RNA sequence: CGGGUGUGCUCAGAGCAGGGGGCCUGAAGAAUGACUGCUCCCAAGGCACCCGACAGGAACUUGGGGUCGUUGUGACGAGGGGCACGGAACACUUGUGGCCUUCCUAGGAACAAAUGCCCUAUGCCC
Numbered sequence: 001c002g003g004g005u006g007u008g009c010u011c012a013g014a015g016c017a018g019g020g021g022g023c024c025u026g027a028a029g030a031a032u033g034a035c036u037g038c039u040c041c042c043a044a045g046g047c048a049c050c051c052g053a054c055a056g057g058a059a060c061u062u063g064g065g066g067u068c069g070u071u072g073u074g075a076c077g078a079g080g081g082g083c084a085c086g087g088a089a090c091a092c093u094u095g096u097g098g099c100c101u102u103c104c105u106a107g108g109a110a111c112a113a114a115u116g117c118c119c120u121a122u123g124c125c126c
Stems, first nucleotide, its partner, number of pairs: 002051006013040005022035001024033001064119004071112003076108001079101003083097005
Overview
Rfam assigns this 126-nucleotide RNA sequence from Prolemur simus to the family "Small nucleolar RNA SNORA11". A reference for the family is Gu et al. (2005), "A novel experimental approach for systematic identification of box H/ACA snoRNAs from eukaryotes", Nucleic Acids Res. About the family: U107 (SNORA11) is a member of the H/ACA class of snoRNAs that guide the sites of modification of uridines to pseudouridines. This snoRNA was identified by RT-PCR from blood cells and its expression confirmed by Northern blot analysis. There is no predicted target for this guide snRNA. A search with the family's covariance model found it, with a score of 81 bits.